[Rfam]
RNA sequence: UGACCUUGGAAAUCAAGUGUAGGUGGGACCUGUUGGCAUAGCUGUAGGCGACCCAUACUUGGUUUCAAGGGUCA
Numbered sequence: 001u002g003a004c005c006u007u008g009g010a011a012a013u014c015a016a017g018u019g020u021a022g023g024u025g026g027g028a029c030c031u032g033u034u035g036g037c038a039u040a041g042c043u044g045u046a047g048g049c050g051a052c053c054c055a056u057a058c059u060u061g062g063u064u065u066c067a068a069g070g071g072u073c074a
Stems, first nucleotide, its partner, number of pairs: 002073006009066006016059002022053003029048003
The record is a 74-nucleotide RNA from Dromaius novaehollandiae, which matches "mir-551 microRNA precursor family" in Rfam. Rfam links the family to the GO terms miRNA-mediated post-transcriptional gene silencing and RISC complex.